RNA sequence: GGCGUAUUUUGCGAUGGCGGAGCUCGACCGCCGACCGAAGUCAUGAUCGCCUUUAUCGACGAUUAUCGUGGAGAGCUCGGGGUCGAGCCGAUCUGCAAGCACCUGCCGAUUGCCCCG
Numbered sequence: 001g002g003c004g005u006a007u008u009u010u011g012c013g014a015u016g017g018c019g020g021a022g023c024u025c026g027a028c029c030g031c032c033g034a035c036c037g038a039a040g041u042c043a044u045g046a047u048c049g050c051c052u053u054u055a056u057c058g059a060c061g062a063u064u065a066u067c068g069u070g071g072a073g074a075g076c077u078c079g080g081g082g083u084c085g086a087g088c089c090g091a092u093c094u095g096c097a098a099g100c101a102c103c104u105g106c107c108g109a110u111u112g113c114c115c116c117g
Base pairs, nucleotide, nucleotide: 016032017031018030019029020028078117079116080115081114082113089112090111092109093108095106096105097104

Annotation:
A member of the RNA family "ALIL pseudoknot" from Celeribacter indicus, 117 nucleotides long. A search with the family's covariance model found it, with a score of 109 bits. Gene Ontology term of the family: positive regulation of translational frameshifting. The literature on the family includes a 2008 paper in J Biol Chem by Mazauric et al., "Apical loop-internal loop RNA pseudoknots: a new type of stimulator of -1 translational frameshifting in bacteria".